[Rfam]
Background:
The family of this 78-nucleotide RNA sequence from Hipposideros armiger is "mir-199 microRNA precursor family". It scores 68 bits against the family's covariance model. Gene Ontology terms of the family: RISC complex and miRNA-mediated post-transcriptional gene silencing. The base pairs follow the family's consensus structure, which was predicted with RNAalifold. This family consists of the microRNA (miRNA) precursor mir-199 which appears to be specific to humans.
RNA sequence: ACUCUGUCUACCGUGUUUAGACUAUCUAUUCAGGACUCCCAAAUUGUACAGUAGUCUGCACAUUGGUUAGGCUGGCUG
Numbered sequence: 001a002c003u004c005u006g007u008c009u010a011c012c013g014u015g016u017u018u019a020g021a022c023u024a025u026c027u028a029u030u031c032a033g034g035a036c037u038c039c040c041a042a043a044u045u046g047u048a049c050a051g052u053a054g055u056c057u058g059c060a061c062a063u064u065g066g067u068u069a070g071g072c073u074g075g076c077u078g
Stems, first nucleotide, its partner, number of pairs: 012066001013063004018058007026051002029048001031046002